[Rfam]
RNA sequence: AAUCAUCAGUGUUUGCUCCCGUUAACCGAGACCUAUGGGAGGGUAAAAUACGUCUCUCAUAUCCACCAGUGAAGGGAUUGGUGGAAAUAAAGUAUCGC
Numbered sequence: 001a002a003u004c005a006u007c008a009g010u011g012u013u014u015g016c017u018c019c020c021g022u023u024a025a026c027c028g029a030g031a032c033c034u035a036u037g038g039g040a041g042g043g044u045a046a047a048a049u050a051c052g053u054c055u056c057u058c059a060u061a062u063c064c065a066c067c068a069g070u071g072a073a074g075g076g077a078u079u080g081g082u083g084g085a086a087a088u089a090a091a092g093u094a095u096c097g098c
Base pairs, nucleotide, nucleotide: 016041017040018039019038020037021036022035028056029055030054031053032052063084064083065082066081067080068079069078